Shown here is a 109-nucleotide RNA from Solibacillus sp. R5-41, a member of the family "SAM riboswitch aptamer (S box leader)". The match comes from Rfam's covariance-model search (97 bits).

RNA sequence: UUCUUAUCAAGAGAAGCGGAGGGGAUUGGCCCGAUGAUGCUUCAGCAACCUCUAAUUUGUAUUAGAAAGGUGCUACUUCCAGCAAGGGUUUUCCCUUGAAAGAUAAGAG
Dot-bracket structure: ((((((((....(((((...(((..[[[[)))......)))))((((.((((((........))))..))))))...(]]]]((((((....))))))..)))))))))